[Rfam]
RNA sequence: ACGGGAACGGCACGGCCGCAAAUCUGACUCGCCUCGCACCCGCGAGGCUUCGGGAUUGCGGAGGUGC
Numbered sequence: 001a002c003g004g005g006a007a008c009g010g011c012a013c014g015g016c017c018g019c020a021a022a023u024c025u026g027a028c029u030c031g032c033c034u035c036g037c038a039c040c041c042g043c044g045a046g047g048c049u050u051c052g053g054g055a056u057u058g059c060g061g062a063g064g065u066g067c
Base pairs, nucleotide, nucleotide: 010067011066012065013064016061017060018059019058020057021056024054025053031048032047033046034045035044036043037042
The record is a 67-nucleotide sequence from Candidatus Halobonum tyrrellensis, which matches "S15-Halobacteria ribosomal protein leader" in Rfam. A reference for the family is Eckert and Weinberg (2020), "Discovery of 20 novel ribosomal leader candidates in bacteria and archaea", BMC Microbiol. Rfam classes the family as a cis-regulatory leader.